Nucleotides: 317
Base pairs, nucleotide, nucleotide: 001040002039003038004023005022006021007020009018010017028037029036030035044316045315047313048312049311051309052308053307056304057303058301059300060299063297066294067293068292070291071290072289073288076285077284078283080276081275083273084272085271086270087269091268092267093266101263102262103261104260105259106258108256110250113248114247115246116245118242119241120240122238123237124236125235126234127179128178129177130176131175132174133173134172135171138168139167140166141165142164143163180185188231189230190229191228198223199222200221206215207214
Number, partner (000 for none) and nucleotide at each position: 001040g002039u003038c004023g005022a006021g007020c008000c009018c010017g011000g012000u013000u014000g015000c016000g017010c018009g019000a020007g021006c022005u023004u024000g025000u026000a027000a028037c029036c030035c031000a032000a033000g034000u035030g036029g037028g038003g039002a040001c041000a042000u043000u044316a045315a046000a047313g048312u049311g050000c051309u052308u053307g054000a055000a056304c057303a058301c059300u060299g061000g062000u063297c064000c065000g066294g067293g068292u069000u070291u071290c072289a073288c074000c075000u076285g077284g078283u079000a080276g081275g082000c083273a084272c085271u086270g087269g088000u089000g090000c091268g092267c093266a094000c095000g096000c097000u098000a099000u100000g101263u102262u103261g104260a105259c106258u107000a108256g109000a110250c111000g112000c113248u114247c115246c116245a117000a118242g119241u120240u121000u122238g123237g124236a125235g126234u127179u128178g129177g130176u131175u132174g133173c134172a135171u136000u137000g138168c139167c140166c141165g142164a143163g144000g145000c146000a147000u148000u149000g150000c151000c152000c153000g154000a155000g156000g157000c158000a159000u160000a161000g162000g163143c164142u165141u166140g167139g168138g169000a170000u171135g172134u173133g174132u175131g176130a177129u178128c179127a180185c181000u182000a183000u184000a185180g186000c187000g188231g189230a190229g191228g192000g193000c194000a195000c196000c197000g198223c199222g200221u201000c202000a203000g204000g205000c206215u207214g208000g209000u210000u211000u212000c213000a214207c215206a216000u217000a218000g219000c220000a221200a222199u223198g224000a225000a226000c227000a228191c229190c230189u231188c232000a233000c234126a235125c236124u237123c238122u239000u240120g241119a242118c243000a244000g245116u246115g247114g248113a249000a250110g251000g252000a253000u254000c255000a256108c257000g258106a259105g260104u261103c262102g263101a264000u265000g266093u267092g268091c269087c270086c271085a272084g273083u274000u275081c276080c277000a278000a279000c280000u281000c282000a283078g284077c285076c286000u287000a288073g289072u290071g291070a292068g293067c294066c295000g296000a297063g298000u299060c300059a301058g302000u303057u304056g305000a306000a307053c308052a309051a310000u311049c312048a313047c314000c315045u316044u317000u
A member of the RNA family "Plant signal recognition particle RNA" from Papaver somniferum, 317 nucleotides long. The match comes from Rfam's covariance-model search (163 bits). The organism belongs to Papaver, within Eukaryota.